[Rfam]
RNA sequence: GGUGCGAAUGCGGGCAGGACUACCUCAUGUCGCCGGUUCGAUCCCGGCCCGUGCUUCGGCGCGGUAGCUCAGUCGGUAGAGCAGAAGUCUUGCCGAUCCUUGUCGCGCCGCU
Numbered sequence: 001g002g003u004g005c006g007a008a009u010g011c012g013g014g015c016a017g018g019a020c021u022a023c024c025u026c027a028u029g030u031c032g033c034c035g036g037u038u039c040g041a042u043c044c045c046g047g048c049c050c051g052u053g054c055u056u057c058g059g060c061g062c063g064g065u066a067g068c069u070c071a072g073u074c075g076g077u078a079g080a081g082c083a084g085a086a087g088u089c090u091u092g093c094c095g096a097u098c099c100u101u102g103u104c105g106c107g108c109c110g111c112u
Stems, first nucleotide, its partner, number of pairs: 002108006013094007025085002032048005039076001049064006067082004
Dot-bracket structure: .((((((.....(((((((.....((.....(((((..[....)))))((((((....))))))..((((.....]..)))).))..)))))))........))))))....
Overview
A member of the RNA family "Y RNA-like" from Methylomagnum ishizawai, 112 nucleotides long. The family's RNA type in Rfam is small RNA. Pairs were carried over by alignment from the consensus structure, which is taken from published work. Lineage of the source: Bacteria > Pseudomonadati > Methylococcales > Methylococcaceae > Methylomagnum.